[Rfam]
RNA sequence: CCCCCUGGCGAACAGGGGGCCUGGCGGCCCGACUCCGGUACCUGGCACGGCCGGGGCGG
Numbered sequence: 001c002c003c004c005c006u007g008g009c010g011a012a013c014a015g016g017g018g019g020c021c022u023g024g025c026g027g028c029c030c031g032a033c034u035c036c037g038g039u040a041c042c043u044g045g046c047a048c049g050g051c052c053g054g055g056g057c058g059g
Stems, first nucleotide, its partner, number of pairs: 001027002004024002007021003029059003033056007
RNA: L17-Actino-Proteobacteria ribosomal protein leader
Organism: Nonomuraea wenchangensis